Background: ylbH leader: a 116-nucleotide RNA sequence from Planifilum fulgidum.
[Rfam]
RNA sequence: AAAAAAUCGGCUCCCGAAUGCUUCGGGAGCCCAUGGUAUCCGCCCGGAGGCGGAUACUGUAUGGGAGAGGAGAAACCGGAGGAAGAGCUUAUGGGGAAACUUAGUCUUCGCGGUGA
Number, nucleotide and partner (000 for none) at each position: 001a000002a000003a000004a000005a000006a000007u000008c000009g000010g000011c029012u028013c027014c026015c025016g024017a023018a022019u000020g000021c000022u018023u017024c016025g015026g014027g013028a012029g011030c065031c064032c063033a062034u061035g000036g000037u000038a000039u054040c053041c052042g051043c050044c049045c000046g000047g000048a000049g044050g043051c042052g041053g040054a039055u000056a000057c000058u000059g000060u000061a034062u033063g032064g031065g030066a000067g000068a000069g000070g000071a000072g000073a000074a000075a000076c000077c113078g000079g111080a000081g000082g109083a108084a107085g106086a000087g105088c104089u103090u000091a101092u000093g000094g000095g000096g000097a000098a000099a000100c000101u091102u000103a089104g088105u087106c085107u084108u083109c082110g000111c079112g000113g077114u000115g000116a000
Notes:
Its family is annotated with regulation of gene expression in the Gene Ontology. This family is a putative regulatory RNA structure that is found upstream of the ylbH gene in B. subtilis and related low GC Gram-positive bacteria.